[Rfam]
RNA sequence: CUACUCUCUCCGUCUCAUAAUGUAAGACGUUUUUUAACACUAGUGUAGUGUUAAAAAACGACUUAUAUUAUGGGACGGAGGGAGUAU
Numbered sequence: 001c002u003a004c005u006c007u008c009u010c011c012g013u014c015u016c017a018u019a020a021u022g023u024a025a026g027a028c029g030u031u032u033u034u035u036a037a038c039a040c041u042a043g044u045g046u047a048g049u050g051u052u053a054a055a056a057a058a059c060g061a062c063u064u065a066u067a068u069u070a071u072g073g074g075a076c077g078g079a080g081g082g083a084g085u086a087u
Base pairs, nucleotide, nucleotide: 003085004084005083007081008080009079010078011077013075014074015073016072017071019069020068021067022066023065024064025063026062028060029059030058031057032056033055034054035053036052037051038050039049040048041047
The family of this 87-nucleotide RNA from Triticum turgidum is "MIR1120/MIR1122 microRNA precursor family". A reference for the family is Yao et al. (2007), "Cloning and characterization of microRNAs from wheat (Triticum aestivum L.)", Genome Biol. The match comes from Rfam's covariance-model search (92 bits). Lineage of the source: Eukaryota > Viridiplantae > Embryophyta > commelinids > Triticum turgidum.